[Rfam]
RNA: mir-166 microRNA precursor family
RNA sequence: UUUGAGGGGAAUGUUGUUUGGCUCGAGGCCCAUAACAAGAUCCACCUUCACAUAUAAUAUAUCGGUAUGAUGGAUCAUAUGUUAGGCGUCGGACCAGGCUUCAUUCCCCCCAAU
Numbered sequence: 001u002u003u004g005a006g007g008g009g010a011a012u013g014u015u016g017u018u019u020g021g022c023u024c025g026a027g028g029c030c031c032a033u034a035a036c037a038a039g040a041u042c043c044a045c046c047u048u049c050a051c052a053u054a055u056a057a058u059a060u061a062u063c064g065g066u067a068u069g070a071u072g073g074a075u076c077a078u079a080u081g082u083u084a085g086g087c088g089u090c091g092g093a094c095c096a097g098g099c100u101u102c103a104u105u106c107c108c109c110c111c112a113a114u
Base pairs, nucleotide, nucleotide: 002113003112004111006109007108008107009106010105011104012103013102016099017098018097019096020095021094024091025090026089